[Rfam]
RNA: Pyrrolysine insertion sequence 1
RNA sequence: UAGGGGAAUGAAACAUCAUUAAGUGCCGCAGGGGUUAUAUCUGCUGACUUUGAAGGCGGCAUGAGGCCAUCUGAUUCACAUGAGGUUUCUCAGCUGAAUG
Numbered sequence: 001u002a003g004g005g006g007a008a009u010g011a012a013a014c015a016u017c018a019u020u021a022a023g024u025g026c027c028g029c030a031g032g033g034g035u036u037a038u039a040u041c042u043g044c045u046g047a048c049u050u051u052g053a054a055g056g057c058g059g060c061a062u063g064a065g066g067c068c069a070u071c072u073g074a075u076u077c078a079c080a081u082g083a084g085g086u087u088u089c090u091c092a093g094c095u096g097a098a099u100g
Base pairs, nucleotide, nucleotide: 010089011088012087013086014085016083017082041059042058043057044056045055
Dot-bracket structure: .........(((((.((.......................(((((.........)))))......................)).)))))...........